[Rfam]
RNA: Molybdenum/Tungsten riboswitch aptamer (Moco RNA motif)
Organism: Vibrio ezurae
RNA sequence: GUAGGUGAAAAACUCCGAGUCUUCUUCACUAAGUUUGUCGUAAAACCUCACGUUUGGGGGUUUAAGAGACACAAUAUGUGGUUUAGGCCGUGACAUAGUGUCACCAGGGCUGCACUAGAAAUGGCGUUGCCUCCCGUAUUUAGGAAAGGUGUUUUGUGACGCAACAA
Numbered sequence: 001g002u003a004g005g006u007g008a009a010a011a012a013c014u015c016c017g018a019g020u021c022u023u024c025u026u027c028a029c030u031a032a033g034u035u036u037g038u039c040g041u042a043a044a045a046c047c048u049c050a051c052g053u054u055u056g057g058g059g060g061u062u063u064a065a066g067a068g069a070c071a072c073a074a075u076a077u078g079u080g081g082u083u084u085a086g087g088c089c090g091u092g093a094c095a096u097a098g099u100g101u102c103a104c105c106a107g108g109g110c111u112g113c114a115c116u117a118g119a120a121a122u123g124g125c126g127u128u129g130c131c132u133c134c135c136g137u138a139u140u141u142a143g144g145a146a147a148g149g150u151g152u153u154u155u156g157u158g159a160c161g162c163a164a165c166a167a
Stems, first nucleotide, its partner, number of pairs: 004160001006158001011153003015149002019088004026081004033075003090104005107132004112127002115124003133144002